[Rfam]
RNA sequence: AAGUAGGACAGCUCUUUUAGAAUUUGUCUAACUGGUUCCUAGUCUUCACUGGAAGCACCCUC
Numbered sequence: 001a002a003g004u005a006g007g008a009c010a011g012c013u014c015u016u017u018u019a020g021a022a023u024u025u026g027u028c029u030a031a032c033u034g035g036u037u038c039c040u041a042g043u044c045u046u047c048a049c050u051g052g053a054a055g056c057a058c059c060c061u062c
Stems, first nucleotide, its partner, number of pairs: 034059003037054001039052005